Small nucleolar RNA snoR74: a 131-nucleotide RNA from Vitis rotundifolia. Rfam links the family to the GO terms RNA processing and nucleolus. The literature on the family includes a 2002 paper in Curr Biol by Marker et al., "Experimental RNomics: identification of 140 candidates for small non-messenger RNAs in the plant Arabidopsis thaliana". The organism belongs to Vitis, within Eukaryota. A search with the family's covariance model found it, with a score of 104 bits.
[Rfam]
RNA sequence: GAAAAAGCAGGGGCCUUUCAAUUUUUAUGGAUGGUCCUCUCGUAAACUUCAGGGAAAUUAGUUGCACUGUUAUUGGGUGAACCUCUUGAGUUUUGUCUGUGAUUGAAGGUUCAGUAAAUAGUGUUACAUUA
Numbered sequence: 001g002a003a004a005a006a007g008c009a010g011g012g013g014c015c016u017u018u019c020a021a022u023u024u025u026u027a028u029g030g031a032u033g034g035u036c037c038u039c040u041c042g043u044a045a046a047c048u049u050c051a052g053g054g055a056a057a058u059u060a061g062u063u064g065c066a067c068u069g070u071u072a073u074u075g076g077g078u079g080a081a082c083c084u085c086u087u088g089a090g091u092u093u094u095g096u097c098u099g100u101g102a103u104u105g106a107a108g109g110u111u112c113a114g115u116a117a118a119u120a121g122u123g124u125u126a127c128a129u130u131a
Base pairs, nucleotide, nucleotide: 005049006048007047011038012037015034016033065123066122067121068120069119070118071117078113079112080111081110082109083108084107